[Rfam]
Bacterial RNase P class A: a 381-nucleotide RNA from Sneathiella litorea. The family's RNA type in Rfam is ribozyme. Lineage of the source: Bacteria > Pseudomonadati > Pseudomonadota > Sneathiellaceae > Sneathiella.

RNA sequence: ACAGAUAGCUGGAUGAUCGCCGCUUGUCGAAAGACAAGGGGAGGAAAGUCCGGGCUCCACGGAAAUACGAUGCCGGUUAAUGGCCGGCGGGGGCGACCCCAGGGAAAGUGCCACAGAAAGCAAACCGCCCGGGAUUUCCGGGUAAGGGUGAAAGGGUGCGGUAAGAGCGCACCGCGCGCCUGGUAACAGGAGCGGCACGGUAAACCCCAUCGGGAGCAAAACCAAAUAGGGAUGGUCGGCGCAGGGGCAACCUGUGCGCAAGCCGGUUUUCCGGGCUAUCAUCCGGGUUGGUUGCUUGAGGUGUCUGGUAACAGGCAUCCUAGAUGAAUGAUCAUCACCUGCAUUCAGGGACAGAACCCGGCUUACAGGCUAUCUGUCUUA
Numbered sequence: 001a002c003a004g005a006u007a008g009c010u011g012g013a014u015g016a017u018c019g020c021c022g023c024u025u026g027u028c029g030a031a032a033g034a035c036a037a038g039g040g041g042a043g044g045a046a047a048g049u050c051c052g053g054g055c056u057c058c059a060c061g062g063a064a065a066u067a068c069g070a071u072g073c074c075g076g077u078u079a080a081u082g083g084c085c086g087g088c089g090g091g092g093g094c095g096a097c098c099c100c101a102g103g104g105a106a107a108g109u110g111c112c113a114c115a116g117a118a119a120g121c122a123a124a125c126c127g128c129c130c131g132g133g134a135u136u137u138c139c140g141g142g143u144a145a146g147g148g149u150g151a152a153a154g155g156g157u158g159c160g161g162u163a164a165g166a167g168c169g170c171a172c173c174g175c176g177c178g179c180c181u182g183g184u185a186a187c188a189g190g191a192g193c194g195g196c197a198c199g200g201u202a203a204a205c206c207c208c209a210u211c212g213g214g215a216g217c218a219a220a221a222c223c224a225a226a227u228a229g230g231g232a233u234g235g236u237c238g239g240c241g242c243a244g245g246g247g248c249a250a251c252c253u254g255u256g257c258g259c260a261a262g263c264c265g266g267u268u269u270u271c272c273g274g275g276c277u278a279u280c281a282u283c284c285g286g287g288u289u290g291g292u293u294g295c296u297u298g299a300g301g302u303g304u305c306u307g308g309u310a311a312c313a314g315g316c317a318u319c320c321u322a323g324a325u326g327a328a329u330g331a332u333c334a335u336c337a338c339c340u341g342c343a344u345u346c347a348g349g350g351a352c353a354g355a356a357c358c359c360g361g362c363u364u365a366c367a368g369g370c371u372a373u374c375u376g377u378c379u380u381a
Base pairs, nucleotide, nucleotide: 001377002376003375004374005373006372007371008370009369010368011366012336013335014334015333016332017331018330020041021040023038024037025036026035027034028033046364047363048362050361051360052359053358054357055216056215057214058213064270065269068212069211070210071209072208073087074086075085076084077083088102089100090099091098092097103207104206108205109204110201111200112199125147126146127143128142129141130140131139132138133137155173156172157171158170159169160168174196175194176193177192179190180189181188182187220293221292222291223290230284231283232282233281234280235279262276263275264274266272300319301318302317303316304315305314306313307312